[Rfam]
RNA sequence: UAGCAUUUAUAUACAGGGCUUCACUAAAUUACUAAUUAGUGCAGUCUUUUUAGCGAUUAGUGCAUAAAGAAAAAACUGAGUUUAUCAGUGGGCGGCCAGACAACCGUUGAGAUGAAUCCACAGAUGGGUUCUAAUUUGUUCCUGUCUACUAAUUUCAUCUCACAUUA
Numbered sequence: 001u002a003g004c005a006u007u008u009a010u011a012u013a014c015a016g017g018g019c020u021u022c023a024c025u026a027a028a029u030u031a032c033u034a035a036u037u038a039g040u041g042c043a044g045u046c047u048u049u050u051u052a053g054c055g056a057u058u059a060g061u062g063c064a065u066a067a068a069g070a071a072a073a074a075a076c077u078g079a080g081u082u083u084a085u086c087a088g089u090g091g092g093c094g095g096c097c098a099g100a101c102a103a104c105c106g107u108u109g110a111g112a113u114g115a116a117u118c119c120a121c122a123g124a125u126g127g128g129u130u131c132u133a134a135u136u137u138g139u140u141c142c143u144g145u146c147u148a149c150u151a152a153u154u155u156c157a158u159c160u161c162a163c164a165u166u167a
Base pairs, nucleotide, nucleotide: 003063004062005061006060008056010053013050015048016047017046018045019044020043022041023040024039025038026037109161110160111159112158113157114156115155116154127143128142

The record is a 167-nucleotide RNA sequence from Anisodus acutangulus, which matches "small nucleolar RNA snoR143" in Rfam. By type it is an H/ACA-box small nucleolar RNA. The family has 3 seed sequences and 660 matches in Rfam 15.1. Gene Ontology terms of the family: RNA processing and nucleolus. A search with the family's covariance model found it, with a score of 110 bits.